[Rfam]
RNA: Group II catalytic intron D1-D4-3
Organism: Anaerostipes rhamnosivorans
RNA sequence: UCCAUCGUGAGGUGAAAUCUGAAGGAAGCCGAAGGCAAAUCUCUGGUCCGACGGACAGAAAUCGCAUAUAAGGCUAGGUUUCGAGAGAUGAGUUGGCUAGAAGCAACAAAGUCUAUUAACUACCACAUUUGUAGAAACAGAGUAAAUGCGGCGGACAUAUGGAGAGAAAGAGCGUGCA
Numbered sequence: 001u002c003c004a005u006c007g008u009g010a011g012g013u014g015a016a017a018u019c020u021g022a023a024g025g026a027a028g029c030c031g032a033a034g035g036c037a038a039a040u041c042u043c044u045g046g047u048c049c050g051a052c053g054g055a056c057a058g059a060a061a062u063c064g065c066a067u068a069u070a071a072g073g074c075u076a077g078g079u080u081u082c083g084a085g086a087g088a089u090g091a092g093u094u095g096g097c098u099a100g101a102a103g104c105a106a107c108a109a110a111g112u113c114u115a116u117u118a119a120c121u122a123c124c125a126c127a128u129u130u131g132u133a134g135a136a137a138c139a140g141a142g143u144a145a146a147u148g149c150g151g152c153g154g155a156c157a158u159a160u161g162g163a164g165a166g167a168a169a170g171a172g173c174g175u176g177c178a
Stems, first nucleotide, its partner, number of pairs: 001016001003014004030176002036170001040165006046156005062151006073143003078138005086114004092107004